F6 TB sRNA: a 57-nucleotide RNA from Actinomycetospora corticicola. Rfam 15.1 lists 310 matches to the family in 304 species. It scores 48 bits against the family's covariance model. By type it is a small RNA. The literature on the family includes a 2009 paper in Mol Microbiol by Arnvig and Young, "Identification of small RNAs in Mycobacterium tuberculosis". The source organism's lineage runs through Bacteria, Bacillati, Actinomycetota, Pseudonocardiaceae and Actinomycetospora.
[Rfam]
RNA sequence: CAGGUGGCCCCGGCGGGCCGCGGGACCCCCGACCUCGCGGCUCACCGGGGCCAUCGU
Numbered sequence: 001c002a003g004g005u006g007g008c009c010c011c012g013g014c015g016g017g018c019c020g021c022g023g024g025a026c027c028c029c030c031g032a033c034c035u036c037g038c039g040g041c042u043c044a045c046c047g048g049g050g051c052c053a054u055c056g057u
Stems, first nucleotide, its partner, number of pairs: 003055003007051007015043008